[Rfam]
RNA sequence: AUUAGUAAAAAGGGGAGCUGAAGGAAAUCGGCUGAGAGGGAGCUUCUUUGUUCCGACCCAUAACCUGAACUGGAUAAUGCCAGCGGAGGGAAAUAUAUUAAAUUAUUAU
Numbered sequence: 001a002u003u004a005g006u007a008a009a010a011a012g013g014g015g016a017g018c019u020g021a022a023g024g025a026a027a028u029c030g031g032c033u034g035a036g037a038g039g040g041a042g043c044u045u046c047u048u049u050g051u052u053c054c055g056a057c058c059c060a061u062a063a064c065c066u067g068a069a070c071u072g073g074a075u076a077a078u079g080c081c082a083g084c085g086g087a088g089g090g091a092a093a094u095a096u097a098u099u100a101a102a103u104u105a106u107u108a109u
Base pairs, nucleotide, nucleotide: 006097007096009094012059013058014057017032018031019030020029021028039054040053041052042051043050064089065088066087070083071082072081073080